Description:
Plastid-clpP 5UTR RNA: a 66-nucleotide RNA sequence from Melianthus villosus. The family's consensus secondary structure was predicted with LocARNA. A reference for the family is Richter et al. (2023), "Retrograde signaling in plants: A critical review focusing on the GUN pathway and beyond", Plant Commun. The family's RNA type in Rfam is cis-regulatory element. Taxonomically the source falls in Melianthus (Eukaryota, Gunneridae, Geraniales, Francoaceae).
[Rfam]
RNA sequence: UUUGUUCCUACGAACAAAGAGAAGCAGAUCUAUUCUAUACCCGAUAAGUACUAAUACGCAAUGGGG
Dot-bracket structure: (.(((((....))))).).....................(((.....(((....))).....))).
Rfam describes the family as follows. Plastid clpP is a non-coding RNA (ncRNA) recognised in plastids. It was found in the prime untranslated region (5UTR) of a protease complex subunit (clpP) in plastids, suggesting a posible cis-regulatory function.
The family has 343 seed sequences and 2,105 matches in Rfam 15.1.